[Rfam]
Shown here is a 129-nucleotide RNA from Caldimonas thermodepolymerans, a member of the family "ZMP/ZTP riboswitch aptamer (pfl RNA motif)".
A search with the family's covariance model found it, with a score of 56 bits.
Nucleotides: 129
Stems, first nucleotide, its partner, number of pairs: 003092010015080002017117005065076004106124001108122003
Number, partner (000 for none) and nucleotide at each position: 001000c002000g003092c004091c005090g006089g007088u008087u009086g010085c011084a012083c013000a014000a015080c016079u017117g018116g019115c020114g021113a022000u023000a024000a025000g026000g027000c028000c029000c030000c031000g032000g033000g034000a035000c036000c037000g038000c039000c040000c041000c042000c043000u044000u045000g046000c047000g048000a049000u050000c051000c052000c053000c054000g055000c056000g057000c058000g059000c060000c061000g062000a063000a064000g065076g066075u067074g068073g069000u070000g071000a072000a073068c074067c075066a076065c077000c078000g079016g080015g081000a082000a083012g084011u085010g086009c087008a088007g089006c090005c091004g092003g093000c094000g095000c096000c097000u098000c099000g100000c101000c102000g103000u104000u105000u106124c107000a108122g109121c110120c111000g112000u113021u114020c115019g116018c117017c118000u119000g120110g121109g122108c123000a124106g125000c126000c127000c128000u129000c